SL2 RNA: a 111-nucleotide sequence from Cylicostephanus goldi.
It is annotated as a non-coding RNA gene.
Rfam 15.1 lists 598 matches to the family in 38 species.
Rfam's curators write: This family represents SL2 RNA. SL2 RNA is involved in trans splicing in lower eukaryotes. Trans-splicing is a form of RNA processing. The acquisition of a spliced leader from a SL RNA is a intra-molecular reaction which precisely joins exons derived from separately transcribed RNAs.
Its family is annotated with mRNA trans splicing, via spliceosome in the Gene Ontology.
The match comes from Rfam's covariance-model search (54 bits).
The source organism's lineage runs through Eukaryota, Ecdysozoa, Chromadorea, Rhabditida and Cylicostephanus.
[Rfam]
RNA sequence: GGUUUUAACCCAGUAUCAAAAGGUACUACGGGCGUCUGACCUACCCAGUCUGUGGGUUGUGUCAAAACCUCAAUUUUUGGACCGCCUUCUCGGGGUAUCCGGGAGGGCAAA
Numbered sequence: 001g002g003u004u005u006u007a008a009c010c011c012a013g014u015a016u017c018a019a020a021a022g023g024u025a026c027u028a029c030g031g032g033c034g035u036c037u038g039a040c041c042u043a044c045c046c047a048g049u050c051u052g053u054g055g056g057u058u059g060u061g062u063c064a065a066a067a068c069c070u071c072a073a074u075u076u077u078u079g080g081a082c083c084g085c086c087u088u089c090u091c092g093g094g095g096u097a098u099c100c101g102g103g104a105g106g107g108c109a110a111a
Stems, first nucleotide, its partner, number of pairs: 007035001009031002013026001015024003037064004041059001043057005088107003094100002